[Rfam]
RNA sequence: CUGAUGGCGGUGCAUGGGUGGAAAUCGGUAUCGAUCGCCCAGUGCCUCUGCGAACCGAGAAUGAGGUUCGACCGGGGCAGCGCCUCAACGUCAG
Dot-bracket structure: (((((...(((((.((((.....((((....))))..))))..(((((..((((((........))))))...))))).))))).....)))))

Shown here is a 94-nucleotide RNA, a member of the family "L4-Archaeoglobi ribosomal protein leades". The family's consensus secondary structure is taken from published work. Rfam's curators put it in the seed alignment. Rfam classes the family as a cis-regulatory leader.